[Rfam]
RNA sequence: ACCACUGAGCCACCUUCCCAGCCCUGUGUCUAUGUUUUUAAAAGAAUGAUUUUGGUUUUGGGCUGGGAAGGUGGCUCAGUGGU
Numbered sequence: 001a002c003c004a005c006u007g008a009g010c011c012a013c014c015u016u017c018c019c020a021g022c023c024c025u026g027u028g029u030c031u032a033u034g035u036u037u038u039u040a041a042a043a044g045a046a047u048g049a050u051u052u053u054g055g056u057u058u059u060g061g062g063c064u065g066g067g068a069a070g071g072u073g074g075c076u077c078a079g080u081g082g083u
Stems, first nucleotide, its partner, number of pairs: 002082023